[Rfam]
RNA: Ribosomal protein L20 leader
Organism: Ornithinibacillus caprae
RNA sequence: UGAGACAAGUAGAAGCACCCGCUUCUCACCUGAUCAACGCUAGUACGCAGUUGACUGGUUAAAACAUCUUUAAAUUUAACGAUUUAAGACGUGUGGGUGCAUUUAUGUGCCCACUUUUUAAUUUGAAA
Numbered sequence: 001u002g003a004g005a006c007a008a009g010u011a012g013a014a015g016c017a018c019c020c021g022c023u024u025c026u027c028a029c030c031u032g033a034u035c036a037a038c039g040c041u042a043g044u045a046c047g048c049a050g051u052u053g054a055c056u057g058g059u060u061a062a063a064a065c066a067u068c069u070u071u072a073a074a075u076u077u078a079a080c081g082a083u084u085u086a087a088g089a090c091g092u093g094u095g096g097g098u099g100c101a102u103u104u105a106u107g108u109g110c111c112c113a114c115u116u117u118u119u120a121a122u123u124u125g126a127a128a
Stems, first nucleotide, its partner, number of pairs: 011026006028059003036052003039048002093114009